[Rfam]
RNA sequence: GGGUGGUAUGCCAUGUGGGAAUGCCAGGUACAGCGAAGGUCGGGCCGCCUCG
Numbered sequence: 001g002g003g004u005g006g007u008a009u010g011c012c013a014u015g016u017g018g019g020a021a022u023g024c025c026a027g028g029u030a031c032a033g034c035g036a037a038g039g040u041c042g043g044g045c046c047g048c049c050u051c052g
Base pairs, nucleotide, nucleotide: 005025006024007023008022009021011019012018034052035051036050038049039048040047
Dot-bracket structure: ....(((((.((.....)).)))))........(((.(((......))))))